[Rfam]
A member of the RNA family "pemK RNA", 64 nucleotides long. Rfam's curators put it in the seed alignment.

RNA sequence: AUAAUGAUACUUCUGUAAUUCGCAGCCCGGCCACGAGGAAGGCGGGGAGGUUACAUGCCUAUGG
Numbered sequence: 001a002u003a004a005u006g007a008u009a010c011u012u013c014u015g016u017a018a019u020u021c022g023c024a025g026c027c028c029g030g031c032c033a034c035g036a037g038g039a040a041g042g043c044g045g046g047g048a049g050g051u052u053a054c055a056u057g058c059c060u061a062u063g064g
Base pairs, nucleotide, nucleotide: 012061013025014024015023016022026047027046028045030043031042032041048060049059050058